[Rfam]
RNA: Mammalian CPEB3 ribozyme
Organism: Crocodylus porosus
RNA sequence: GGUCGCACGCUUGAGGCCACGGCAGACGCACUCGCCAUCCGGCCCUGUCAGAUUCCCGUGAAUCUGUGAAAUCUACA
Numbered sequence: 001g002g003u004c005g006c007a008c009g010c011u012u013g014a015g016g017c018c019a020c021g022g023c024a025g026a027c028g029c030a031c032u033c034g035c036c037a038u039c040c041g042g043c044c045c046u047g048u049c050a051g052a053u054u055c056c057c058g059u060g061a062a063u064c065u066g067u068g069a070a071a072u073c074u075a076c077a
Stems, first nucleotide, its partner, number of pairs: 013045001015044004022076001024074003028040001030038001049066007